[Rfam]
RNA sequence: GUUGGGAUGAUGAAAAAAAUAGAAAUCAGUCGGAUUCACAUUGAUUUUUAUUAAUAUGAUCAUACAACCAGCUACUUCUGACUAAC
Numbered sequence: 001g002u003u004g005g006g007a008u009g010a011u012g013a014a015a016a017a018a019a020u021a022g023a024a025a026u027c028a029g030u031c032g033g034a035u036u037c038a039c040a041u042u043g044a045u046u047u048u049u050a051u052u053a054a055u056a057u058g059a060u061c062a063u064a065c066a067a068c069c070a071g072c073u074a075c076u077u078c079u080g081a082c083u084a085a086c
Stems, first nucleotide, its partner, number of pairs: 001086005
Dot-bracket structure: (((((............................................................................)))))